RNA sequence: GAGCGGCUGGAUUCGGGGCCGAGGCACUGUCUGAGACGCCCUACGAUUCUCACAGUGAACCGGUCUCUUUUCCAGCCCCUCA
Numbered sequence: 001g002a003g004c005g006g007c008u009g010g011a012u013u014c015g016g017g018g019c020c021g022a023g024g025c026a027c028u029g030u031c032u033g034a035g036a037c038g039c040c041c042u043a044c045g046a047u048u049c050u051c052a053c054a055g056u057g058a059a060c061c062g063g064u065c066u067c068u069u070u071u072c073c074a075g076c077c078c079c080u081c082a
Stems, first nucleotide, its partner, number of pairs: 006076005015067007025057006033051003